[Rfam]
RNA sequence: UGUAUAAGGAAGGGGUGGGAGCCUUCCCUAUACUUGUUUACAAAUACCAUACAGUGUUACAGCAGUGUGUAGUUUACUAUGCAGGUUUGAAGGGCGGGGAUAGUCUGUGCCAGCAGACGUGUACCAGCACUUCAGAAGGAACCUGCAACUGCGAACCGGGAGAGCAUCUAGAGCCCCUAAGCUGUGAGUACACAGCAGCCGUCAGAGAGUCAGCUGGAAAGGAUCACCCACCUGGAAGCUCUCGUGGACGGGGUCAUAGACCAAGGGCAACUCUAUUGAGGAGGUGGGGUACCUCUUCAUACACCCCAGUGGUGUGAUGUGCUGCCUGACAGGGUCCCGGCUGAUGGCCCGGCUAGCAGUAUAAAAAUCAGUUGUAAUGGCAC
Numbered sequence: 001u002g003u004a005u006a007a008g009g010a011a012g013g014g015g016u017g018g019g020a021g022c023c024u025u026c027c028c029u030a031u032a033c034u035u036g037u038u039u040a041c042a043a044a045u046a047c048c049a050u051a052c053a054g055u056g057u058u059a060c061a062g063c064a065g066u067g068u069g070u071a072g073u074u075u076a077c078u079a080u081g082c083a084g085g086u087u088u089g090a091a092g093g094g095c096g097g098g099g100a101u102a103g104u105c106u107g108u109g110c111c112a113g114c115a116g117a118c119g120u121g122u123a124c125c126a127g128c129a130c131u132u133c134a135g136a137a138g139g140a141a142c143c144u145g146c147a148a149c150u151g152c153g154a155a156c157c158g159g160g161a162g163a164g165c166a167u168c169u170a171g172a173g174c175c176c177c178u179a180a181g182c183u184g185u186g187a188g189u190a191c192a193c194a195g196c197a198g199c200c201g202u203c204a205g206a207g208a209g210u211c212a213g214c215u216g217g218a219a220a221g222g223a224u225c226a227c228c229c230a231c232c233u234g235g236a237a238g239c240u241c242u243c244g245u246g247g248a249c250g251g252g253g254u255c256a257u258a259g260a261c262c263a264a265g266g267g268c269a270a271c272u273c274u275a276u277u278g279a280g281g282a283g284g285u286g287g288g289g290u291a292c293c294u295c296u297u298c299a300u301a302c303a304c305c306c307c308a309g310u311g312g313u314g315u316g317a318u319g320u321g322c323u324g325c326c327u328g329a330c331a332g333g334g335u336c337c338c339g340g341c342u343g344a345u346g347g348c349c350c351g352g353c354u355a356g357c358a359g360u361a362u363a364a365a366a367a368u369c370a371g372u373u374g375u376a377a378u379g380g381c382a383c
Base pairs, nucleotide, nucleotide: 002033003032004031005030006029008027009026010025081146082145083144084143085142086141091131092130094128095127096125097124101119105116106115107114148360149359150358151357152356154354156352157351158350159349160348161323162322164320165319166318167317170274171273172272173271175267176266177265178264181196182195183194184193185192186191199251200250201249202248205243206242207241208240209239210235211234212233213232215230216229217228253261254260255259277299278298279297280296281295282294283293284292285291286290300316301315302314303313304312305311324335325334326333327332338374339373340372341371342370343369344368345367
RNA: Pestivirus internal ribosome entry site (IRES) including 5'UTR SLI